[Rfam]
RNA sequence: UUGGGGGGAAAUAGUGGUUCGUUAAGUUGGGGAAAAAGACAUCAUGUCUUGAGAUAAUAUUAGGUUUGUUUCCUUUUACUCCUAAAAUCUUUUUACCGUAGGUAAAAAGAAUCAAUCUGGGUUUAUAAAAGGAACCAAAUUUAAAUUUAACUCAAGGGAUCUUGAUGUCGUUUUCUCCAACAUGACGGAUCCCCAA
Number, nucleotide and partner (000 for none) at each position: 001u000002u000003g000004g000005g000006g000007g000008g000009a000010a000011a000012u195013a000014g193015u000016g191017g190018u189019u188020c187021g186022u185023u184024a000025a000026g181027u180028u179029g178030g177031g176032g175033a174034a173035a172036a000037a000038g000039a000040c000041a166042u165043c164044a163045u159046g000047u157048c000049u155050u154051g153052a152053g151054a000055u149056a148057a147058u000059a000060u144061u143062a142063g141064g140065u139066u138067u137068g136069u000070u134071u133072c132073c131074u130075u129076u128077u125078a124079c000080u000081c121082c120083u119084a118085a000086a000087a000088u000089c109090u108091u107092u106093u105094u104095a103096c102097c101098g000099u000100a000101g097102g096103u095104a094105a093106a092107a091108a090109g089110a000111a000112u000113c000114a000115a000116u000117c000118u084119g083120g082121g081122u000123u000124u078125a077126u000127a000128a076129a075130a074131g073132g072133a071134a070135c000136c068137a067138a066139a065140u064141u063142u062143a061144a060145a000146u000147u057148u056149a055150a000151c053152u052153c051154a050155a049156g000157g047158g000159a045160u000161c000162u000163u044164g043165a042166u041167g000168u000169c000170g000171u000172u035173u034174u033175c032176u031177c030178c029179a028180a027181c026182a000183u000184g023185a022186c021187g020188g019189a018190u017191c016192c000193c014194c000195a012196a000

This 196-nucleotide RNA from Medicago truncatula belongs to the Rfam family "MIR2670 microRNA precursor family". The family's consensus secondary structure was predicted with RNAalifold. Rfam links the family to the GO terms miRNA-mediated post-transcriptional gene silencing and RISC complex. NCBI's taxonomy places the organism under Eukaryota, Pentapetalae, rosids, Trifolieae, Medicago.